[Rfam]
RNA sequence: UGGUAGAUGCACCCUGGUUAAGCCUUAGAGGGAUUUCUCUCUAGGGCUUUUUUUG
Numbered sequence: 001u002g003g004u005a006g007a008u009g010c011a012c013c014c015u016g017g018u019u020a021a022g023c024c025u026u027a028g029a030g031g032g033a034u035u036u037c038u039c040u041c042u043a044g045g046g047c048u049u050u051u052u053u054u055g
Base pairs, nucleotide, nucleotide: 002013003012004011022047023046024045025044026043027042028041029040030039031038032037
RNA: Nitrogen stress-induced RNA 1
Organism: [Phormidium ambiguum] IAM M-71